[Rfam]
RNA sequence: CUCACACGGACAGAACUCCCUUGGUCCGGUCUCUUGGUCCUAGUUACGCUCAAGCUCGCCGAUUCCGCUUGUGGCGUGUCGAUGAUGGCGGCUCUGUGUAGGAUGGAUCUGUUGGGAGUCCCGACCUGGUGUCUCAUGGGGGGAAGCUGCGGUCCGAAGGAAGCUGUGCCGGGACCCAUCUUGAGUUGGAGUCAGAGCUUCGUGCUCGUCUGGUGCUGUGGAUAUCUUCAGCGGCCUAUCCUUGUGAUAGCUAGUGAGGGCUUUGCUUAGAGGACGGGCUUCUUGGGAGGCAGUCCUGGCUGUCCCUCUCUCCAGCAAUGGCGGGAGGGCGGCCCCUCUUUUUG
Numbered sequence: 001c002u003c004a005c006a007c008g009g010a011c012a013g014a015a016c017u018c019c020c021u022u023g024g025u026c027c028g029g030u031c032u033c034u035u036g037g038u039c040c041u042a043g044u045u046a047c048g049c050u051c052a053a054g055c056u057c058g059c060c061g062a063u064u065c066c067g068c069u070u071g072u073g074g075c076g077u078g079u080c081g082a083u084g085a086u087g088g089c090g091g092c093u094c095u096g097u098g099u100a101g102g103a104u105g106g107a108u109c110u111g112u113u114g115g116g117a118g119u120c121c122c123g124a125c126c127u128g129g130u131g132u133c134u135c136a137u138g139g140g141g142g143g144a145a146g147c148u149g150c151g152g153u154c155c156g157a158a159g160g161a162a163g164c165u166g167u168g169c170c171g172g173g174a175c176c177c178a179u180c181u182u183g184a185g186u187u188g189g190a191g192u193c194a195g196a197g198c199u200u201c202g203u204g205c206u207c208g209u210c211u212g213g214u215g216c217u218g219u220g221g222a223u224a225u226c227u228u229c230a231g232c233g234g235c236c237u238a239u240c241c242u243u244g245u246g247a248u249a250g251c252u253a254g255u256g257a258g259g260g261c262u263u264u265g266c267u268u269a270g271a272g273g274a275c276g277g278g279c280u281u282c283u284u285g286g287g288a289g290g291c292a293g294u295c296c297u298g299g300c301u302g303u304c305c306c307u308c309u310c311u312c313c314a315g316c317a318a319u320g321g322c323g324g325g326a327g328g329g330c331g332g333c334c335c336c337u338c339u340u341u342u343u344g
Stems, first nucleotide, its partner, number of pairs: 173193003176189003195207004
The family of this 344-nucleotide part of an RNA from Coniochaeta hoffmannii is "Ascomycota telomerase RNA". A search with the family's covariance model found it, with a score of 530 bits. The pairing is the family consensus, mapped onto this sequence. Rfam 15.1 lists 475 matches to the family in 456 species.